[Rfam]
RNA sequence: AUAUAAGCAAAAGUAGCUUUUUUAGAUUCAUUGAAAAAGUUAUGUAUUUAGUCUAUAAUAUAGACUAAAUACAUUACUUUUUCAAUGAAUCUAUAAAAGCUACUUUUACUUAUAU
Numbered sequence: 001a002u003a004u005a006a007g008c009a010a011a012a013g014u015a016g017c018u019u020u021u022u023u024a025g026a027u028u029c030a031u032u033g034a035a036a037a038a039g040u041u042a043u044g045u046a047u048u049u050a051g052u053c054u055a056u057a058a059u060a061u062a063g064a065c066u067a068a069a070u071a072c073a074u075u076a077c078u079u080u081u082u083c084a085a086u087g088a089a090u091c092u093a094u095a096a097a098a099g100c101u102a103c104u105u106u107u108a109c110u111u112a113u114a115u
Base pairs, nucleotide, nucleotide: 002114003113004112005111006110007109009107010106011105012104013103015101016100017099018098019097020096021095023093024092025091027089028088029087030086031085032084033083034082035081036080037079038078039077040076042074043073044072049067050066051065052064
About this RNA
Shown here is a 115-nucleotide sequence from Trifolium medium, a member of the family "MIR2593 microRNA precursor family". A search with the family's covariance model found it, with a score of 97 bits. NCBI's taxonomy places the organism under Eukaryota, Embryophyta, Magnoliopsida, Trifolieae, Trifolium. Pairs were carried over by alignment from the consensus structure, which was predicted with RNAalifold.